[Rfam]
RNA sequence: AAGCAAGGGCACCAGGUGGAUGCCUUGGCUCUCGGAGGCGAUGAAGGACGUGAUAAGCUGCGAAAAGCCGCGGUUAGGCGCAAAUAGCCCUUGACCCGCGGAUCUCCGAAUGGGACAACCCGCCAUCCUGAAGGGAUGGCAUCCCGCAAGUCGGGAGGCCAACGCAGGGAACUGAAACAUCUUAGUACCUGCAGGAAAAGAAAACAACAGUGAUUCCCCCAGUAGUGGCGAGCGAACGGGGAGGAGCCCAAACCCCUCCUGUCUAGGCAGGCGGGGGGUUGUAGGACCACGACAUCGCACGGGUUAUGGCGAGCGGAAGGCGCUGGAAAGCGCCGCCAGAGAGCAUGAAAGCUGCGUACGCGAAGCCAUAUGAGGCGUAGUGGUAUCCUGAGUAGCGCGGGACACGUGAAAUCCUGCGUGAAUCCGCCGGGCCCAUCCGGCAAGGCUAAAUACUCCCGAGAGACCGAUAGUGUACCAGUACCGUGAGGGAAAGGUGAAAAGUACCCCGAACAGGGGAGUGAAAUAGUCCCUGAACCCUGGUGCCUACAAG
Numbered sequence: 001a002a003g004c005a006a007g008g009g010c011a012c013c014a015g016g017u018g019g020a021u022g023c024c025u026u027g028g029c030u031c032u033c034g035g036a037g038g039c040g041a042u043g044a045a046g047g048a049c050g051u052g053a054u055a056a057g058c059u060g061c062g063a064a065a066a067g068c069c070g071c072g073g074u075u076a077g078g079c080g081c082a083a084a085u086a087g088c089c090c091u092u093g094a095c096c097c098g099c100g101g102a103u104c105u106c107c108g109a110a111u112g113g114g115a116c117a118a119c120c121c122g123c124c125a126u127c128c129u130g131a132a133g134g135g136a137u138g139g140c141a142u143c144c145c146g147c148a149a150g151u152c153g154g155g156a157g158g159c160c161a162a163c164g165c166a167g168g169g170a171a172c173u174g175a176a177a178c179a180u181c182u183u184a185g186u187a188c189c190u191g192c193a194g195g196a197a198a199a200g201a202a203a204a205c206a207a208c209a210g211u212g213a214u215u216c217c218c219c220c221a222g223u224a225g226u227g228g229c230g231a232g233c234g235a236a237c238g239g240g241g242a243g244g245a246g247c248c249c250a251a252a253c254c255c256c257u258c259c260u261g262u263c264u265a266g267g268c269a270g271g272c273g274g275g276g277g278g279u280u281g282u283a284g285g286a287c288c289a290c291g292a293c294a295u296c297g298c299a300c301g302g303g304u305u306a307u308g309g310c311g312a313g314c315g316g317a318a319g320g321c322g323c324u325g326g327a328a329a330g331c332g333c334c335g336c337c338a339g340a341g342a343g344c345a346u347g348a349a350a351g352c353u354g355c356g357u358a359c360g361c362g363a364a365g366c367c368a369u370a371u372g373a374g375g376c377g378u379a380g381u382g383g384u385a386u387c388c389u390g391a392g393u394a395g396c397g398c399g400g401g402a403c404a405c406g407u408g409a410a411a412u413c414c415u416g417c418g419u420g421a422a423u424c425c426g427c428c429g430g431g432c433c434c435a436u437c438c439g440g441c442a443a444g445g446c447u448a449a450a451u452a453c454u455c456c457c458g459a460g461a462g463a464c465c466g467a468u469a470g471u472g473u474a475c476c477a478g479u480a481c482c483g484u485g486a487g488g489g490a491a492a493g494g495u496g497a498a499a500a501g502u503a504c505c506c507c508g509a510a511c512a513g514g515g516g517a518g519u520g521a522a523a524u525a526g527u528c529c530c531u532g533a534a535c536c537c538u539g540g541u542g543c544c545u546a547c548a549a550g
Stems, first nucleotide, its partner, number of pairs: 007545010022530001023494002027465002029462007036454002038159002046107003049062003068101006077089003112121003122140007142156005163194001164192005174181002204211002214450001215242005225233002245447004253276004258271002283389003287383004300375001305370006313361003319334005337341001343355003395419008426441005481488002504516004